[Rfam]
RNA: CRISPR RNA direct repeat element
Organism: Streptococcus thermophilus
RNA sequence: GUUUUGAAACCAUUCGAAACAACACAGCGAGUUAAA
Numbered sequence: 001g002u003u004u005u006g007a008a009a010c011c012a013u014u015c016g017a018a019a020c021a022a023c024a025c026a027g028c029g030a031g032u033u034a035a036a
Base pairs, nucleotide, nucleotide: 001020002019003018004017005016006015007014